The record is a 54-nucleotide sequence from Scyliorhinus torazame, which matches "Editing element of GABA-3 exon 9" in Rfam. A search with the family's covariance model found it, with a score of 73 bits.

RNA sequence: AAAGUUGCAUAUGCAACUGCCAUGGACUGGUUUAUUGCAGUCUGCUACGCCUUU
Numbered sequence: 001a002a003a004g005u006u007g008c009a010u011a012u013g014c015a016a017c018u019g020c021c022a023u024g025g026a027c028u029g030g031u032u033u034a035u036u037g038c039a040g041u042c043u044g045c046u047a048c049g050c051c052u053u054u
Base pairs, nucleotide, nucleotide: 001054002053003052007050008049010047011046013045014044016041017040018039019038020037022035023034024033025032026031
The family has 52 seed sequences and 4,208 matches in Rfam 15.1. The base pairs follow the family's consensus structure, which is taken from published work. The literature on the family includes a 2007 paper in RNA by Ohlson et al., "Editing modifies the GABA(A) receptor subunit alpha3".